[Rfam]
RNA sequence: GGCUCAAGUGAUGAGUGAAAAACUGCAACAAUAUGAUGGGAGCUAUACUCCUGUGAUUCCUAAGUAUUUAAGUCUCUGAUGUACC
Numbered sequence: 001g002g003c004u005c006a007a008g009u010g011a012u013g014a015g016u017g018a019a020a021a022a023c024u025g026c027a028a029c030a031a032u033a034u035g036a037u038g039g040g041a042g043c044u045a046u047a048c049u050c051c052u053g054u055g056a057u058u059c060c061u062a063a064g065u066a067u068u069u070a071a072g073u074c075u076c077u078g079a080u081g082u083a084c085c
Stems, first nucleotide, its partner, number of pairs: 001085002004083001005081002038052005

The record is an 85-nucleotide RNA sequence, which matches "Small nucleolar RNA Z199" in Rfam. For this family Rfam cites "The high diversity of snoRNAs in plants: identification and comparative study of 120 snoRNA genes from Oryza sativa" (Chen et al., Nucleic Acids Res, 2003). snoZ199 is a C/D box small nucleolar RNA, which acts as a methylation guide RNA for sites on 18S and 25S rRNA. Rice snoZ199 is reported to be homologous to Arabidopsis snoR13. Rfam links the family to the GO terms nucleolus and RNA processing.